Shown here is a 360-nucleotide part of an RNA from Nocardioides sp. Root79, a member of the family "Bacterial large subunit ribosomal RNA". Pairs were carried over by alignment from the consensus structure, which is taken from published work. Clan: LSU clan. The organism belongs to Nocardioides, within Bacteria. It scores 2747 bits against the family's covariance model. Its family is annotated with ribosome and structural constituent of ribosome in the Gene Ontology.
RNA sequence: CGAGACAACCAUGGUUAAGGAACUCGGCAAAAUGCCCCCGUAACUUCGGGAGAAGGGGGGCCUGGAUCGUGUACCCACUUGCUGGGGAAGCGUGAAGGGCCGCAGAGACCAGGGGAAAGCGACUGUUUACUAAAAACACAGGUCCGUGCGAAGUUGUAAGACGAUGUAUACGGACUGACUCCUGCCCGGUGCUGGAAGGUUAAGAGGACGGGUUAGACGCAAGUCGAAGCUCAGAAUUUAAGCCCCAGUAAACGGCGGUGGUAACUAUAACCAUCCUAAGGUAGCGAAAUUCCUUGUCGGGUAAGUUCCGACCUGCACGAAUGGAGUAACGACUUUCCUACUGUCUCAACCAUGGACUCG
Numbered sequence: 001c002g003a004g005a006c007a008a009c010c011a012u013g014g015u016u017a018a019g020g021a022a023c024u025c026g027g028c029a030a031a032a033u034g035c036c037c038c039c040g041u042a043a044c045u046u047c048g049g050g051a052g053a054a055g056g057g058g059g060g061c062c063u064g065g066a067u068c069g070u071g072u073a074c075c076c077a078c079u080u081g082c083u084g085g086g087g088a089a090g091c092g093u094g095a096a097g098g099g100c101c102g103c104a105g106a107g108a109c110c111a112g113g114g115g116a117a118a119g120c121g122a123c124u125g126u127u128u129a130c131u132a133a134a135a136a137c138a139c140a141g142g143u144c145c146g147u148g149c150g151a152a153g154u155u156g157u158a159a160g161a162c163g164a165u166g167u168a169u170a171c172g173g174a175c176u177g178a179c180u181c182c183u184g185c186c187c188g189g190u191g192c193u194g195g196a197a198g199g200u201u202a203a204g205a206g207g208a209c210g211g212g213u214u215a216g217a218c219g220c221a222a223g224u225c226g227a228a229g230c231u232c233a234g235a236a237u238u239u240a241a242g243c244c245c246c247a248g249u250a251a252a253c254g255g256c257g258g259u260g261g262u263a264a265c266u267a268u269a270a271c272c273a274u275c276c277u278a279a280g281g282u283a284g285c286g287a288a289a290u291u292c293c294u295u296g297u298c299g300g301g302u303a304a305g306u307u308c309c310g311a312c313c314u315g316c317a318c319g320a321a322u323g324g325a326g327u328a329a330c331g332a333c334u335u336u337c338c339u340a341c342u343g344u345c346u347c348a349a350c351c352a353u354g355g356a357c358u359c360g
Stems, first nucleotide, its partner, number of pairs: 001360004009355008018346003035059005044049001060100004078094001080092004101105001113339007120331002124138003141176008149166001153162003179326004184256003189253002191249005198244003204238002210232004216225002257275006276280001286313001296312006